[Rfam]
RNA sequence: GGCGAUAAAUUGUGAUGUGCAAUAGGCACAGCGGACCCGGGGGCAGUACCCGGCGGCUCCACCAUAUACCCCGUUUCGAUGGGGCGCAUGACGGGGCCGAACCAGGAUCGACGUGUGUUGAAAGACAUUAUUUUUGCCCGGGCUGAGUAACCCGUAAAACUGUUCAAAACACACAAGUGCCAACGAUAACGAAGCACUCGCUCUCGCCGCGUAA
Numbered sequence: 001g002g003c004g005a006u007a008a009a010u011u012g013u014g015a016u017g018u019g020c021a022a023u024a025g026g027c028a029c030a031g032c033g034g035a036c037c038c039g040g041g042g043g044c045a046g047u048a049c050c051c052g053g054c055g056g057c058u059c060c061a062c063c064a065u066a067u068a069c070c071c072c073g074u075u076u077c078g079a080u081g082g083g084g085c086g087c088a089u090g091a092c093g094g095g096g097c098c099g100a101a102c103c104a105g106g107a108u109c110g111a112c113g114u115g116u117g118u119u120g121a122a123a124g125a126c127a128u129u130a131u132u133u134u135u136g137c138c139c140g141g142g143c144u145g146a147g148u149a150a151c152c153c154g155u156a157a158a159a160c161u162g163u164u165c166a167a168a169a170c171a172c173a174c175a176a177g178u179g180c181c182a183a184c185g186a187u188a189a190c191g192a193a194g195c196a197c198u199c200g201c202u203c204u205c206g207c208c209g210c211g212u213a214a
Stems, first nucleotide, its partner, number of pairs: 001138005015128004027117003031114003037053005054099007139154004
Description:
This 214-nucleotide RNA from Croceicoccus sp. YJ47 belongs to the Rfam family "permuted transfer-messenger RNA". It is annotated as a non-coding RNA gene.